Rfam assigns this 127-nucleotide sequence from Beta vulgaris to the family "MIR408 microRNA precursor family". Rfam links the family to the GO terms RISC complex and miRNA-mediated post-transcriptional gene silencing. A reference for the family is Sunkar and Zhu (2004), "Novel and stress-regulated microRNAs and other small RNAs from Arabidopsis", Plant Cell. Taxonomically the source falls in Beta vulgaris (Eukaryota, Streptophyta, Magnoliopsida, Beta).
RNA sequence: UCAGAGAGAUUGGAUAAAGCCGGAGAAGAAGUAGUGCAAGGAUAGAGCUGCUUGCAAACUACAUUUUCAUGUGUUUUGGCUCUACCCUUGCACUGCCUCUUCCCUGGCUAUUAUGUCUCCUCUACAU
Numbered sequence: 001u002c003a004g005a006g007a008g009a010u011u012g013g014a015u016a017a018a019g020c021c022g023g024a025g026a027a028g029a030a031g032u033a034g035u036g037c038a039a040g041g042a043u044a045g046a047g048c049u050g051c052u053u054g055c056a057a058a059c060u061a062c063a064u065u066u067u068c069a070u071g072u073g074u075u076u077u078g079g080c081u082c083u084a085c086c087c088u089u090g091c092a093c094u095g096c097c098u099c100u101u102c103c104c105u106g107g108c109u110a111u112u113a114u115g116u117c118u119c120c121u122c123u124a125c126a127u
Stems, first nucleotide, its partner, number of pairs: 018109002021106003025102003029098001031096004036091006045082002